[Rfam]
RNA sequence: GGUAAACAUGAAUAGUAAAGGUCUGACCCCCACAUCGCCUCCCAGGAUUUUCCCGACCCCAGCUGCCUUUCUCCCAUCAGCCUGUCUCCCAUCAGCCUCCAGUGGUGCUCUGAUAAGGUAAAAGGGGAACUGACAGGCAGCAAUGUCCCUAUUUUGGGUUCCCUGAUGAGUCCAGGGAAGAUGGCAAGAUUGGCAUGUAACAGCUUGGUGGCCAAGGGCUUUGGAUGCUGGGAGUACUGGUGUCUGGUCUGACAGUUCCAGCUGAGACC
Numbered sequence: 001g002g003u004a005a006a007c008a009u010g011a012a013u014a015g016u017a018a019a020g021g022u023c024u025g026a027c028c029c030c031c032a033c034a035u036c037g038c039c040u041c042c043c044a045g046g047a048u049u050u051u052c053c054c055g056a057c058c059c060c061a062g063c064u065g066c067c068u069u070u071c072u073c074c075c076a077u078c079a080g081c082c083u084g085u086c087u088c089c090c091a092u093c094a095g096c097c098u099c100c101a102g103u104g105g106u107g108c109u110c111u112g113a114u115a116a117g118g119u120a121a122a123a124g125g126g127g128a129a130c131u132g133a134c135a136g137g138c139a140g141c142a143a144u145g146u147c148c149c150u151a152u153u154u155u156g157g158g159u160u161c162c163c164u165g166a167u168g169a170g171u172c173c174a175g176g177g178a179a180g181a182u183g184g185c186a187a188g189a190u191u192g193g194c195a196u197g198u199a200a201c202a203g204c205u206u207g208g209u210g211g212c213c214a215a216g217g218g219c220u221u222u223g224g225a226u227g228c229u230g231g232g233a234g235u236a237c238u239g240g241u242g243u244c245u246g247g248u249c250u251g252a253c254a255g256u257u258c259c260a261g262c263u264g265a266g267a268c269c
Stems, first nucleotide, its partner, number of pairs: 001269003031251002034248003039234007057218003060132003064128001066126001088118002091114005097107001140198001143196005155183002159179007

Shown here is a 269-nucleotide RNA sequence from Castor canadensis, a member of the family "Small Cajal body specific RNA 6". By type it is a small Cajal body RNA. A search with the family's covariance model found it, with a score of 129 bits. Its family is annotated with nucleolus and RNA processing in the Gene Ontology. U88 is small Cajal body specific RNA (scaRNA). scaRNAs are a novel class of small nuclear RNAs which localise to the Cajal bodies. U88 is found associated with both fibrillarin and Gar1p and co-localises with coilin in Cajal bodies.